RNA sequence: CGUAUAUUCUAGCAAACUUGUCGAAAGACAAGGGGCGCAAAGCCACGGGUCUAAUGUUUAAAACUAUGACCGCCGAGUUGCAAAA
Numbered sequence: 001c002g003u004a005u006a007u008u009c010u011a012g013c014a015a016a017c018u019u020g021u022c023g024a025a026a027g028a029c030a031a032g033g034g035g036c037g038c039a040a041a042g043c044c045a046c047g048g049g050u051c052u053a054a055u056g057u058u059u060a061a062a063a064c065u066a067u068g069a070c071c072g073c074c075g076a077g078u079u080g081c082a083a084a085a
Stems, first nucleotide, its partner, number of pairs: 012038002017032006041079003046075003049070003056064003
A member of the RNA family "c-di-GMP-I riboswitch aptamer" from Kineothrix alysoides, 85 nucleotides long. Rfam links the family to the GO term cyclic-di-GMP binding.